Shown here is an 80-nucleotide sequence from Diploscapter pachys, a member of the family "mir-2 microRNA precursor family". Its family is annotated with miRNA-mediated post-transcriptional gene silencing and RISC complex in the Gene Ontology.
[Rfam]
RNA sequence: CUGCACGUCAAAGUGGUCGGUGAUUUGUAGCAAAGCCUCCAGAGGACGACUCAUAUCACAGCCAGCUUUGAUGUGCUGUC
Numbered sequence: 001c002u003g004c005a006c007g008u009c010a011a012a013g014u015g016g017u018c019g020g021u022g023a024u025u026u027g028u029a030g031c032a033a034a035g036c037c038u039c040c041a042g043a044g045g046a047c048g049a050c051u052c053a054u055a056u057c058a059c060a061g062c063c064a065g066c067u068u069u070g071a072u073g074u075g076c077u078g079u080c
Stems, first nucleotide, its partner, number of pairs: 005074009014064003018061001020059004026055003
Pairs were carried over by alignment from the consensus structure, which was predicted with PFOLD. The family has 56 seed sequences and 918 matches in Rfam 15.1. It scores 52 bits against the family's covariance model.